[Rfam]
RNA sequence: CCCCGUUUAAGAUCAUCGUCGGAGAGGAAAGUCCGGACACCGCAGGGCAGGACGCCACCCGAGGUCGAAAGGCCAAGUGUGGACGGCGAGCUUCAAGGCUCGUUGAUGGACAGUGUCACAGAGAAUAUACCGCCGCGCGGGCAACCGCGAGGUAAGGGUGAAAAGGUGGGGUAAGAGCCCACCGCGCCGCGCCGCAAGGCCGGCGGCAUGAAAAACCCCGUCCGGUGCAAGGCAAAAUAGGUGACUGGGCGGCUCGUCCUAUAGUCACGGGUAUGCCGCAUCCGCCGGCCUCAGGUUGUGAGCAAUCAUGACUCGA
Numbered sequence: 001c002c003c004c005g006u007u008u009a010a011g012a013u014c015a016u017c018g019u020c021g022g023a024g025a026g027g028a029a030a031g032u033c034c035g036g037a038c039a040c041c042g043c044a045g046g047g048c049a050g051g052a053c054g055c056c057a058c059c060c061g062a063g064g065u066c067g068a069a070a071g072g073c074c075a076a077g078u079g080u081g082g083a084c085g086g087c088g089a090g091c092u093u094c095a096a097g098g099c100u101c102g103u104u105g106a107u108g109g110a111c112a113g114u115g116u117c118a119c120a121g122a123g124a125a126u127a128u129a130c131c132g133c134c135g136c137g138c139g140g141g142c143a144a145c146c147g148c149g150a151g152g153u154a155a156g157g158g159u160g161a162a163a164a165g166g167u168g169g170g171g172u173a174a175g176a177g178c179c180c181a182c183c184g185c186g187c188c189g190c191g192c193c194g195c196a197a198g199g200c201c202g203g204c205g206g207c208a209u210g211a212a213a214a215a216c217c218c219c220g221u222c223c224g225g226u227g228c229a230a231g232g233c234a235a236a237a238u239a240g241g242u243g244a245c246u247g248g249g250c251g252g253c254u255c256g257u258c259c260u261a262u263a264g265u266c267a268c269g270g271g272u273a274u275g276c277c278g279c280a281u282c283c284g285c286c287g288g289c290c291u292c293a294g295g296u297u298g299u300g301a302g303c304a305a306u307c308a309u310g311a312c313u314c315g316a
Stems, first nucleotide, its partner, number of pairs: 001024001003022003007018001009016001038227004045255004050223005055082004083107001084105009108218002113216002116211002130157002132153003136149005165183006184207001185205005191200003231277004241268005247259004294313008
Dot-bracket structure: (.(((.(.(......).).))).).............((((...[[[[.(((((((((....................))))((((((((((....))))))))).)((...((.((............(((((.(((((....))))).)))..)).......((((((.......))))))((((((.(((....)))))))).)..))...)))))))))))))...((((......(((((.((((.]]]]))))....))))).....))))................((((((((....))))))))...
Background
A member of the RNA family "Bacterial RNase P class A", 316 nucleotides long. The match comes from Rfam's covariance-model search (165 bits). It is annotated as a ribozyme.